RNA: Small nucleolar RNA SNORA74
Organism: Lepisosteus oculatus
RNA sequence: CCCAGCGGCAGUCAGCUGCGCAGGCGUGCUGCCGUGCCUGCGCCGGUGUUACUCCGCUGGGAGAGGAAGGCGCUGCCUGUGUGGUCGGGCUCUAGGAGGCGCUGUUUUAGCGGCUGCUGGUGCCGGGCUGUGGCAGUGCUUUGCCCCUCCGAGAGUGGGCUGCCCCCCAACACUGGGGGCAGCCCUAGUCUGGGGGCACACAGA
Numbered sequence: 001c002c003c004a005g006c007g008g009c010a011g012u013c014a015g016c017u018g019c020g021c022a023g024g025c026g027u028g029c030u031g032c033c034g035u036g037c038c039u040g041c042g043c044c045g046g047u048g049u050u051a052c053u054c055c056g057c058u059g060g061g062a063g064a065g066g067a068a069g070g071c072g073c074u075g076c077c078u079g080u081g082u083g084g085u086c087g088g089g090c091u092c093u094a095g096g097a098g099g100c101g102c103u104g105u106u107u108u109a110g111c112g113g114c115u116g117c118u119g120g121u122g123c124c125g126g127g128c129u130g131u132g133g134c135a136g137u138g139c140u141u142u143g144c145c146c147c148u149c150c151g152a153g154a155g156u157g158g159g160c161u162g163c164c165c166c167c168c169a170a171c172a173c174u175g176g177g178g179g180c181a182g183c184c185c186u187a188g189u190c191u192g193g194g195g196g197c198a199c200a201c202a203g204a
Base pairs, nucleotide, nucleotide: 001061002060003059004058005057006056007055008054011052012051015047016046017045018044021040022039023038024037025036070139071138072137073136074135075134076133077132084128085127086126088124089123090122092120093119095117097115100112101111102110103109142198143197144196145195146194147193148192157185158184159183161181162180163179164178165177166176167175